[Rfam]
Description: The family of this 85-nucleotide RNA from Anaerocolumna cellulosilytica is "c-di-GMP-I riboswitch aptamer". Rfam describes the family as follows. GEMM was predicted in a large-scale screen for bacterial structured RNA regulatory elements. The source organism's lineage runs through Bacteria, Bacillati, Bacillota, Lachnospiraceae and Anaerocolumna. A search with the family's covariance model found it, with a score of 78 bits.
RNA sequence: ACUUUAUAAAGGCAAACUCAUUGAAAAGUGGGGACGCAAAGCUACGAGUCUAAGGCAUAAGAGCUAUGAUGGUCGAGUUGCAGUA
Number, nucleotide and partner (000 for none) at each position: 001a000002c000003u000004u000005u000006a000007u000008a000009a000010a000011g000012g037013c036014a000015a000016a000017c032018u031019c030020a029021u028022u027023g000024a000025a000026a000027a022028g021029u020030g019031g018032g017033g000034a000035c000036g013037c012038a000039a000040a079041g078042c077043u076044a000045c075046g074047a073048g070049u069050c068051u000052a000053a000054g000055g064056c063057a000058u000059a000060a000061g000062a000063g056064c055065u000066a000067u000068g050069a049070u048071g000072g000073u047074c046075g045076a043077g042078u041079u040080g000081c000082a000083g000084u000085a000